The family of this 540-nucleotide part of an RNA from Candidatus Marinamargulisbacteria bacterium SCGC AG-410-N11 is "Bacterial small subunit ribosomal RNA". Pairs were carried over by alignment from the consensus structure, which is taken from published work. The match comes from Rfam's covariance-model search (1577 bits). The source organism's lineage runs through Bacteria, Bacillati, Candidatus Margulisiibacteriota and Candidatus Marinamargulisbacteria. Rfam 15.1 lists 42,628 matches to the family in 10,626 species.

[Rfam]
RNA sequence: UUAAAUGUGAGUUUGAUCCUGGCUCAGGAUGAAUGCUGGCGGCGUACUUAAUACAUGCAAGUUGAACGAAUCUAUUAGGACUUGUUCUAAUAGAUUAGUAGCAAACGGGUGAGUAAUACAUAGGUAACAUGCCUCUAAGUCUGGGAUAACUUUUCGAAAGAAACGCUAAUACCGGAUACUCUUUUUCCUUCGCAUGUUGGAGAAAGGAAAGAUUUAUUGCUUAGAGAUUGACCUAUGCCUGAUUAGUUAGUUGGUAGGGUAACGGCCUACCAAGACUUUGAUCAGUAGCUGGUCUGAGAGGAUGAACAGCCACACUGGGACUGAGACACGGCCCAGACUCCUACGGGAGGCAGCAGUAGGGAAUAUUGCGCAAUGGGCGAAAGCCUGACGCAGUGACGCCGCGUGAGUGAUGACGUCUUUAGGGAUGUAAAGCUCUGUCAAGAGGGACGAUCGUGACGGUACCUCUAAAGGAAGCCCCGGCUAAAUACGUGCCAGCAGCCGCGGUAAUACGUAUGGGGCGAGCAUUAUCCGGAUUUAUUG
Numbered sequence: 001u002u003a004a005a006u007g008u009g010a011g012u013u014u015g016a017u018c019c020u021g022g023c024u025c026a027g028g029a030u031g032a033a034u035g036c037u038g039g040c041g042g043c044g045u046a047c048u049u050a051a052u053a054c055a056u057g058c059a060a061g062u063u064g065a066a067c068g069a070a071u072c073u074a075u076u077a078g079g080a081c082u083u084g085u086u087c088u089a090a091u092a093g094a095u096u097a098g099u100a101g102c103a104a105a106c107g108g109g110u111g112a113g114u115a116a117u118a119c120a121u122a123g124g125u126a127a128c129a130u131g132c133c134u135c136u137a138a139g140u141c142u143g144g145g146a147u148a149a150c151u152u153u154u155c156g157a158a159a160g161a162a163a164c165g166c167u168a169a170u171a172c173c174g175g176a177u178a179c180u181c182u183u184u185u186u187c188c189u190u191c192g193c194a195u196g197u198u199g200g201a202g203a204a205a206g207g208a209a210a211g212a213u214u215u216a217u218u219g220c221u222u223a224g225a226g227a228u229u230g231a232c233c234u235a236u237g238c239c240u241g242a243u244u245a246g247u248u249a250g251u252u253g254g255u256a257g258g259g260u261a262a263c264g265g266c267c268u269a270c271c272a273a274g275a276c277u278u279u280g281a282u283c284a285g286u287a288g289c290u291g292g293u294c295u296g297a298g299a300g301g302a303u304g305a306a307c308a309g310c311c312a313c314a315c316u317g318g319g320a321c322u323g324a325g326a327c328a329c330g331g332c333c334c335a336g337a338c339u340c341c342u343a344c345g346g347g348a349g350g351c352a353g354c355a356g357u358a359g360g361g362a363a364u365a366u367u368g369c370g371c372a373a374u375g376g377g378c379g380a381a382a383g384c385c386u387g388a389c390g391c392a393g394u395g396a397c398g399c400c401g402c403g404u405g406a407g408u409g410a411u412g413a414c415g416u417c418u419u420u421a422g423g424g425a426u427g428u429a430a431a432g433c434u435c436u437g438u439c440a441a442g443a444g445g446g447a448c449g450a451u452c453g454u455g456a457c458g459g460u461a462c463c464u465c466u467a468a469a470g471g472a473a474g475c476c477c478c479g480g481c482u483a484a485a486u487a488c489g490u491g492c493c494a495g496c497a498g499c500c501g502c503g504g505u506a507a508u509a510c511g512u513a514u515g516g517g518g519c520g521a522g523c524a525u526u527a528u529c530c531g532g533a534u535u536u537a538u539u540g
Base pairs, nucleotide, nucleotide: 009025010024011023012022013021027530028529029528030527032526033525034524035523036522037521039402040401041400042399043398044397045395046394047360052358053357054356056355057354058353061102062101063100066099067098069096070095074091075090076089077088078087079086080085109313110312111311119237120236121235122234123233124232125231128230129229133226134225135224136223137222138221139220141175142174143173144172150165152163153162154161155160181206182205183204184203185202186201187200191196211218212217239285240284241283246276247275248274251273252272253271254270255269256268257267258266288310289309290308291307292303293302294301295300315336316335317334318333319332338349339348340347341346366392368391369390370389374387375386376385377384378383405435406434407433408432415426416425417424418423439471441466442465443464444463445462449457474519475518476517477516478515485514486513487512488511489510495502496501